mir-29 microRNA precursor family: a 65-nucleotide sequence from Mytilus coruscus. Rfam links the family to the GO terms gene silencing by miRNA and RISC complex. Pairs were carried over by alignment from the consensus structure, which was predicted with PFOLD. The match comes from Rfam's covariance-model search (62 bits).
[Rfam]
Nucleotides: 065
Stems, first nucleotide, its partner, number of pairs: 001065004007059004012054004018048005025042004
Number, partner (000 for none) and nucleotide at each position: 001065a002064g003063a004062a005000c006000c007059c008058u009057g010056a011000c012054u013053u014052c015051a016000u017000u018048u019047g020046g021045u022044g023000g024000a025042u026041a027040g028039a029000u030000u031000u032000a033000u034000u035000u036000a037000c038000u039028u040027c041026u042025a043000g044022c045021a046020c047019c048018a049000u050000u051015u052014g053013a054012a055000a056010u057009c058008a059007g060000u061000u062004u063003u064002c065001u

About the family: This family represents the microRNA (miRNA) precursors mir-29.